Shown here is a 90-nucleotide sequence from Anaerocolumna xylanovorans, a member of the family "c-di-GMP-I riboswitch aptamer". The match comes from Rfam's covariance-model search (70 bits). The family's consensus secondary structure is taken from published work. Taxonomically the source falls in Anaerocolumna xylanovorans (Bacteria, Lachnospirales, Lachnospiraceae, Anaerocolumna).
[Rfam]
RNA sequence: GACCUAUAUUGGCAAACUCAUUGAAAGAUGAGGACGCAAAGCUUAGGGUCUAAAUCUGUAUUAAGACAGAUAUGGCAGCCAGUUGCACGA
Numbered sequence: 001g002a003c004c005u006a007u008a009u010u011g012g013c014a015a016a017c018u019c020a021u022u023g024a025a026a027g028a029u030g031a032g033g034a035c036g037c038a039a040a041g042c043u044u045a046g047g048g049u050c051u052a053a054a055u056c057u058g059u060a061u062u063a064a065g066a067c068a069g070a071u072a073u074g075g076c077a078g079c080c081a082g083u084u085g086c087a088c089g090a
Base pairs, nucleotide, nucleotide: 012037013036017032018031019030020029021028022027040084041083042082043081046080047079048076049075050074055070056069057068058067